[Rfam]
Shown here is a 115-nucleotide RNA sequence from Bacillus sp. THAF10, a member of the family "TPP riboswitch aptamer (THI element)". Rfam describes the family as follows. Vitamin B(1) in its active form thiamin pyrophosphate (TPP) is an essential coenzyme that is synthesised by coupling of pyrimidine and thiazole moieties in bacteria. A search with the family's covariance model found it, with a score of 80 bits.

RNA sequence: AGAAAUAACUAGGGGAGUCCAAUAGGUUGGGCUGAGAGAGAAACACGUUAAAGUUUCUUGACCCUUUGGACCUGAUCUAGAUCAUACUAGCGUGGGGAAGUUAGAAAAAAUAAUC
Numbered sequence: 001a002g003a004a005a006u007a008a009c010u011a012g013g014g015g016a017g018u019c020c021a022a023u024a025g026g027u028u029g030g031g032c033u034g035a036g037a038g039a040g041a042a043a044c045a046c047g048u049u050a051a052a053g054u055u056u057c058u059u060g061a062c063c064c065u066u067u068g069g070a071c072c073u074g075a076u077c078u079a080g081a082u083c084a085u086a087c088u089a090g091c092g093u094g095g096g097g098a099a100g101u102u103a104g105a106a107a108a109a110a111u112a113a114u115c
Base pairs, nucleotide, nucleotide: 006103007102008101009100010099011065012064013063014062016059017032018031019030020029021028039058040057041056042055043054071096072095073094074093077090078089079088080087